[Rfam]
The family of this 413-nucleotide sequence from Cohnella sp. CIP 111063 is "Bacterial RNase P class A".
Rfam links the family to the GO terms ribonuclease P activity, dimeric ribonuclease P complex and tRNA processing.
About the family: Ribonuclease P (RNase P) is a ubiquitous endoribonuclease, found in archaea, bacteria and eukarya as well as chloroplasts and mitochondria.

RNA sequence: AAAGUUUGACAGACAAUCGCUGGCGGCUUCGCGCCGCGAGAGGAAAGUCCGGGCUCCACAGGGCAGGAUGCUGGAUAACGUCCAGUCAGCGCGAGCUGAAGGAUAGUGCCACAGAAAUGGACCGCCGAUGGCUGCUUAGGCAGAUCAGGCAAGGAUGGAACCGUGGUGUAAGAGACCACGAGGGACACUGGUGACUUUGUCCCUGGUAAACCCCAUCUGGAGCAAGACCGAGGAGAACGCCGAAGCUUCGAGCUUCAGCCCUAGCCCGGGGUGCGUUCGGGUUGGUCGCUUGAGCCGUACAGCAAUGUGCGGCCUAGAAAGAUGAUUGUCGCUUCAACCGUGGGAGGAUCGCCUUGGCGCGAUCCGUUCUGACCACGAGAAGUACAGAACCCGGCUUACGACAAGCUUUCCGG
Numbered sequence: 001a002a003a004g005u006u007u008g009a010c011a012g013a014c015a016a017u018c019g020c021u022g023g024c025g026g027c028u029u030c031g032c033g034c035c036g037c038g039a040g041a042g043g044a045a046a047g048u049c050c051g052g053g054c055u056c057c058a059c060a061g062g063g064c065a066g067g068a069u070g071c072u073g074g075a076u077a078a079c080g081u082c083c084a085g086u087c088a089g090c091g092c093g094a095g096c097u098g099a100a101g102g103a104u105a106g107u108g109c110c111a112c113a114g115a116a117a118u119g120g121a122c123c124g125c126c127g128a129u130g131g132c133u134g135c136u137u138a139g140g141c142a143g144a145u146c147a148g149g150c151a152a153g154g155a156u157g158g159a160a161c162c163g164u165g166g167u168g169u170a171a172g173a174g175a176c177c178a179c180g181a182g183g184g185a186c187a188c189u190g191g192u193g194a195c196u197u198u199g200u201c202c203c204u205g206g207u208a209a210a211c212c213c214c215a216u217c218u219g220g221a222g223c224a225a226g227a228c229c230g231a232g233g234a235g236a237a238c239g240c241c242g243a244a245g246c247u248u249c250g251a252g253c254u255u256c257a258g259c260c261c262u263a264g265c266c267c268g269g270g271g272u273g274c275g276u277u278c279g280g281g282u283u284g285g286u287c288g289c290u291u292g293a294g295c296c297g298u299a300c301a302g303c304a305a306u307g308u309g310c311g312g313c314c315u316a317g318a319a320a321g322a323u324g325a326u327u328g329u330c331g332c333u334u335c336a337a338c339c340g341u342g343g344g345a346g347g348a349u350c351g352c353c354u355u356g357g358c359g360c361g362a363u364c365c366g367u368u369c370u371g372a373c374c375a376c377g378a379g380a381a382g383u384a385c386a387g388a389a390c391c392c393g394g395c396u397u398a399c400g401a402c403a404a405g406c407u408u409u410c411c412g413g
Stems, first nucleotide, its partner, number of pairs: 001409008010400001012330007020040002023037005045397003049394005054222004061267004066218005071085005086100001087098004101213002106211002108207003122154002124150003130145001132143004162180006182203006190195001226287004235278006258272005294313008